[Rfam]
RNA sequence: GUUCACAUCUUACCGGGCAGCAUUAGAUAUGUUAUCGGAUAUUUCUAAUACUGUCAGGUAAAGAUGUCGUC
Numbered sequence: 001g002u003u004c005a006c007a008u009c010u011u012a013c014c015g016g017g018c019a020g021c022a023u024u025a026g027a028u029a030u031g032u033u034a035u036c037g038g039a040u041a042u043u044u045c046u047a048a049u050a051c052u053g054u055c056a057g058g059u060a061a062a063g064a065u066g067u068c069g070u071c
Base pairs, nucleotide, nucleotide: 003069005067006066007065008064009063010061011060012059013058014057016055017054018053019052020051022049023048024047025046026045027044
This 71-nucleotide RNA from Anopheles gambiae belongs to the Rfam family "mir-8/mir-141/mir-200 microRNA precursor family". Lineage of the source: Eukaryota > Ecdysozoa > Pterygota > Anopheles > gambiae species complex. The base pairs follow the family's consensus structure, which was predicted with RNAalifold. The family is grouped with related families in Rfam's "mir-8 microRNA precursor clan". Rfam 15.1 lists 2,669 matches to the family in 883 species. The sequence is in the family's curated seed alignment.